[Rfam]
RNA sequence: UGUGGGGGUGAUGAGUUGCACUCUUAAGUGGGGACUCCAGUGCAGUGGCAUAGGAUCCUCAGUCUGACCUCCUGAGGACACGCCAAUGUGCACAGGGGCCAUUUGACUCACA
Numbered sequence: 001u002g003u004g005g006g007g008g009u010g011a012u013g014a015g016u017u018g019c020a021c022u023c024u025u026a027a028g029u030g031g032g033g034a035c036u037c038c039a040g041u042g043c044a045g046u047g048g049c050a051u052a053g054g055a056u057c058c059u060c061a062g063u064c065u066g067a068c069c070u071c072c073u074g075a076g077g078a079c080a081c082g083c084c085a086a087u088g089u090g091c092a093c094a095g096g097g098g099c100c101a102u103u104u105g106a107c108u109c110a111c112a
Base pairs, nucleotide, nucleotide: 004111006109007108008107024067025066026065029061030060031059033057034056040051041050042049043048
Rfam assigns this 112-nucleotide RNA from Conger conger to the family "Small nucleolar RNA SNORD67".
A search with the family's covariance model found it, with a score of 68 bits.
By type it is a C/D-box small nucleolar RNA.
Its family is annotated with RNA processing and nucleolus in the Gene Ontology.
Rfam's curators write: snoRNA HBII-166 belongs to the C/D family of snoRNAs.
The pairing is the family consensus, mapped onto this sequence.